Rfam assigns this 170-nucleotide RNA from Caballeronia glathei to the family "Manganese Mn2+ riboswitch aptamer (yybP-ykoY)".
It scores 68 bits against the family's covariance model.
On this family, see Argaman et al., Curr Biol 2001: "Novel small RNA-encoding genes in the intergenic regions of Escherichia coli".
From the family's description: This RNA was originally discovered in E. coli during a large scale screen and was named SraF. The family was later found to exist upstream of related families of protein genes in many bacteria, including the the yybP and ykoK genes in B. subtilis.

RNA sequence: GACCCCGUCUUUGGGGAGUAGCCUUCCUUCCGCUCAUGGGAGGAGAACGCGUCAACAUCCUCGGCUUUUCUGCCGUGGCGCGUUCGGCCGGUCAGGUCUGGCGAGACCAUCGAUGCAUCGUGUCGUUCCUGGUCGGACGGCGCGUGGUGCAUCGUGGUUCGCAGACGUCC
Numbered sequence: 001g002a003c004c005c006c007g008u009c010u011u012u013g014g015g016g017a018g019u020a021g022c023c024u025u026c027c028u029u030c031c032g033c034u035c036a037u038g039g040g041a042g043g044a045g046a047a048c049g050c051g052u053c054a055a056c057a058u059c060c061u062c063g064g065c066u067u068u069u070c071u072g073c074c075g076u077g078g079c080g081c082g083u084u085c086g087g088c089c090g091g092u093c094a095g096g097u098c099u100g101g102c103g104a105g106a107c108c109a110u111c112g113a114u115g116c117a118u119c120g121u122g123u124c125g126u127u128c129c130u131g132g133u134c135g136g137a138c139g140g141c142g143c144g145u146g147g148u149g150c151a152u153c154g155u156g157g158u159u160c161g162c163a164g165a166c167g168u169c170c
Stems, first nucleotide, its partner, number of pairs: 026043003045085010062075004091170001